A member of the RNA family "c-di-GMP-I riboswitch aptamer" from Clostridium butyricum, 86 nucleotides long.
Gene Ontology term of the family: cyclic-di-GMP binding.

RNA sequence: AGUAUGUUUUAGCAAAGCUAGAGAAAUCUAGCGACGCAAAGCUAUAGGGACUAAGGUUGUGAAAACUAUGUCAGCCAGUUGCCGAA
Numbered sequence: 001a002g003u004a005u006g007u008u009u010u011a012g013c014a015a016a017g018c019u020a021g022a023g024a025a026a027u028c029u030a031g032c033g034a035c036g037c038a039a040a041g042c043u044a045u046a047g048g049g050a051c052u053a054a055g056g057u058u059g060u061g062a063a064a065a066c067u068a069u070g071u072c073a074g075c076c077a078g079u080u081g082c083c084g085a086a
Base pairs, nucleotide, nucleotide: 012037013036017032018031019030020029021028022027040080041079042078043077047076048075049072050071051070056066057065058064
The organism belongs to Clostridium butyricum, within Bacteria.